[Rfam]
RNA sequence: ACAGGGGGAGCCGAAAACCUUCAGAACAGAGUAGGCA
Numbered sequence: 001a002c003a004g005g006g007g008g009a010g011c012c013g014a015a016a017a018c019c020u021u022c023a024g025a026a027c028a029g030a031g032u033a034g035g036c037a
Stems, first nucleotide, its partner, number of pairs: 003020003010036003